Source information
Shown here is an 80-nucleotide sequence from Flavobacterium sp. TAB 87, a member of the family "Flavo-1 RNA". The match comes from Rfam's covariance-model search (50 bits). The family's consensus secondary structure is taken from published work. The family has 201 seed sequences and 7,497 matches in Rfam 15.1. It is annotated as a small RNA.

RNA sequence: UUUUGGGUUAGGGAUAGCAACGGCAUCCUUUUGUGUUUUUCUUUAAAAAACAAAAGAUACAGUGGAAAGCCCGGCCGCAG
Numbered sequence: 001u002u003u004u005g006g007g008u009u010a011g012g013g014a015u016a017g018c019a020a021c022g023g024c025a026u027c028c029u030u031u032u033g034u035g036u037u038u039u040u041c042u043u044u045a046a047a048a049a050a051c052a053a054a055a056g057a058u059a060c061a062g063u064g065g066a067a068a069g070c071c072c073g074g075c076c077g078c079a080g
Stems, first nucleotide, its partner, number of pairs: 011072003015068001020063002025058003031053004036048003